The family of this 69-nucleotide RNA sequence from Nitrosomonas sp. Nm51 is "int-alpA RNA".
The match comes from Rfam's covariance-model search (48 bits).
Lineage of the source: Bacteria > Pseudomonadota > Betaproteobacteria > Nitrosomonadaceae > Nitrosomonas.
Rfam's curators write: Acidobacteria (1 example), Planctomycetes (1 example), Proteobacteria.
The family's consensus secondary structure is taken from published work.
RNA sequence: UGCCAAUCUAGCCCGGCCAGGCGAAAGCGGGAAACCUUCAGCCCGUUGGUUGGCUACCUUUCCUGAAGG
Numbered sequence: 001u002g003c004c005a006a007u008c009u010a011g012c013c014c015g016g017c018c019a020g021g022c023g024a025a026a027g028c029g030g031g032a033a034a035c036c037u038u039c040a041g042c043c044c045g046u047u048g049g050u051u052g053g054c055u056a057c058c059u060u061u062c063c064u065g066a067a068g069g
Stems, first nucleotide, its partner, number of pairs: 002054007011022003027046005035069006